c-di-AMP riboswitch aptamer (ydaO/yuaA leader): a 182-nucleotide RNA from Cohnella terricola.

RNA sequence: UGAUGAUGUCAGCCGAAUUUCUUAGCGAAGAAAAUGGGGGAACCAACGAUCGCCUUGUACAAGUACAAUUGUAUUCGGUGAUCCCGGGGUGAAUUCCAAUUGCCGUAAAUGGCGAUGGAUAGGGCGGCCUGUUCGAGCCCGAAUCCGACAGCUAACCUCGUAGGCUGCUUGCGAACAGGACU
Numbered sequence: 001u002g003a004u005g006a007u008g009u010c011a012g013c014c015g016a017a018u019u020u021c022u023u024a025g026c027g028a029a030g031a032a033a034a035u036g037g038g039g040g041a042a043c044c045a046a047c048g049a050u051c052g053c054c055u056u057g058u059a060c061a062a063g064u065a066c067a068a069u070u071g072u073a074u075u076c077g078g079u080g081a082u083c084c085c086g087g088g089g090u091g092a093a094u095u096c097c098a099a100u101u102g103c104c105g106u107a108a109a110u111g112g113c114g115a116u117g118g119a120u121a122g123g124g125c126g127g128c129c130u131g132u133u134c135g136a137g138c139c140c141g142a143a144u145c146c147g148a149c150a151g152c153u154a155a156c157c158u159c160g161u162a163g164g165c166u167g168c169u170u171g172c173g174a175a176c177a178g179g180a181c182u
Stems, first nucleotide, its partner, number of pairs: 011166004018033005034161006044086001087146003095119004122140004